[Rfam]
RNA sequence: GGUAGUAGCAGCGAAGCGGGGUGGGAAUCCCCGCCGCCGUAAGGGCCAGGGUUCCCCGGCAACGAUCGUCGGCCGGGGGUUAGCCGGUCCUAACCGGAUGCGUAACUCGACAUCCGGGAAAGGGAAACGGGUUAAUAUUCCCGUGCCGUGGGGGUACGUUUCGGGGCAACCCAAGGCCUAGCUUCCGACGUCUUAGGGUAGGCGGACUGGAGGCCUCCUUAAGGGGGCGAUCCAGCUAACUUCUUAAGGCCGGGAAGUGCUGUAAUAGCGAGAACCGGCUGAAGGAAGGAAUGGCCUGCGUUAGCGGGUUCCGCUGAGCCCCAGGACCCAUGAAAAGGAAGCUAGGAAGGAUCCUCCACGACCGUACCGAGAACCGACACAGGUGCCCCUGGGUGAGGAGCCCAAGGCGUAG
Numbered sequence: 001g002g003u004a005g006u007a008g009c010a011g012c013g014a015a016g017c018g019g020g021g022u023g024g025g026a027a028u029c030c031c032c033g034c035c036g037c038c039g040u041a042a043g044g045g046c047c048a049g050g051g052u053u054c055c056c057c058g059g060c061a062a063c064g065a066u067c068g069u070c071g072g073c074c075g076g077g078g079g080u081u082a083g084c085c086g087g088u089c090c091u092a093a094c095c096g097g098a099u100g101c102g103u104a105a106c107u108c109g110a111c112a113u114c115c116g117g118g119a120a121a122g123g124g125a126a127a128c129g130g131g132u133u134a135a136u137a138u139u140c141c142c143g144u145g146c147c148g149u150g151g152g153g154g155u156a157c158g159u160u161u162c163g164g165g166g167c168a169a170c171c172c173a174a175g176g177c178c179u180a181g182c183u184u185c186c187g188a189c190g191u192c193u194u195a196g197g198g199u200a201g202g203c204g205g206a207c208u209g210g211a212g213g214c215c216u217c218c219u220u221a222a223g224g225g226g227g228c229g230a231u232c233c234a235g236c237u238a239a240c241u242u243c244u245u246a247a248g249g250c251c252g253g254g255a256a257g258u259g260c261u262g263u264a265a266u267a268g269c270g271a272g273a274a275c276c277g278g279c280u281g282a283a284g285g286a287a288g289g290a291a292u293g294g295c296c297u298g299c300g301u302u303a304g305c306g307g308g309u310u311c312c313g314c315u316g317a318g319c320c321c322c323a324g325g326a327c328c329c330a331u332g333a334a335a336a337g338g339a340a341g342c343u344a345g346g347a348a349g350g351a352u353c354c355u356c357c358a359c360g361a362c363c364g365u366a367c368c369g370a371g372a373a374c375c376g377a378c379a380c381a382g383g384u385g386c387c388c389c390u391g392g393g394u395g396a397g398g399a400g401c402c403c404a405a406g407g408c409g410u411a412g
Stems, first nucleotide, its partner, number of pairs: 016034006035409004043388004049368002054078006063071002085364003089123002094117006101109002127144005147360008184339003190327005196321003201315005207235005240288004249279005259269003300305001374383002390404004

A member of the RNA family "Archaeal large subunit ribosomal RNA" from Caldisphaera lagunensis, 412 nucleotides of a longer RNA. Rfam links the family to the GO terms structural constituent of ribosome and ribosome. The base pairs follow the family's consensus structure, which is taken from published work. The source organism's lineage runs through Archaea, Thermoproteati, Thermoproteota, Thermoprotei and Caldisphaera lagunensis.